[Rfam]
RNA sequence: GAAUCGAGUAGAAGCGGUCAGCACAGAGGGCUCUCAACAGAACCCGAGGUGCAGGGCAUUGCUCUGGCG
Numbered sequence: 001g002a003a004u005c006g007a008g009u010a011g012a013a014g015c016g017g018u019c020a021g022c023a024c025a026g027a028g029g030g031c032u033c034u035c036a037a038c039a040g041a042a043c044c045c046g047a048g049g050u051g052c053a054g055g056g057c058a059u060u061g062c063u064c065u066g067g068c069g
Stems, first nucleotide, its partner, number of pairs: 006064005015054001018056002021052004
Rfam assigns this 69-nucleotide RNA from Pseudomonas atacamensis to the family "Xanthine riboswitch aptamer (NMT1 RNA)". For this family Rfam cites "A bacterial riboswitch class senses xanthine and uric acid to regulate genes associated with purine oxidation" (Yu and Breaker, RNA, 2020). NCBI's taxonomy places the organism under Bacteria, Pseudomonadati, Pseudomonadota, Gammaproteobacteria, Pseudomonas atacamensis. Rfam's curators put it in the seed alignment. Pairs were carried over by alignment from the consensus structure, which is taken from published work. Its family is annotated with purine nucleobase binding in the Gene Ontology.